[Rfam]
RNA sequence: UGGCUUAUGAUGAUAAAUGAAGUAUCUUAGCGGAUUUCAAUGAGAUUUUAUAAAUCAAUGAUCUGGUUGUUACACACACUGAAGCCU
Numbered sequence: 001u002g003g004c005u006u007a008u009g010a011u012g013a014u015a016a017a018u019g020a021a022g023u024a025u026c027u028u029a030g031c032g033g034a035u036u037u038c039a040a041u042g043a044g045a046u047u048u049u050a051u052a053a054a055u056c057a058a059u060g061a062u063c064u065g066g067u068u069g070u071u072a073c074a075c076a077c078a079c080u081g082a083a084g085c086c087u
Stems, first nucleotide, its partner, number of pairs: 002086004
A member of the RNA family "Small nucleolar RNA R11/Z151" from Olea europaea, 87 nucleotides long. Pairs were carried over by alignment from the consensus structure, which was predicted with PFOLD. Gene Ontology terms of the family: nucleolus and RNA processing. For this family Rfam cites "Identification of 66 box C/D snoRNAs in Arabidopsis thaliana: extensive gene duplications generated multiple isoforms predicting new ribosomal RNA 2'-O-methylation sites" (Barneche et al., J Mol Biol, 2001).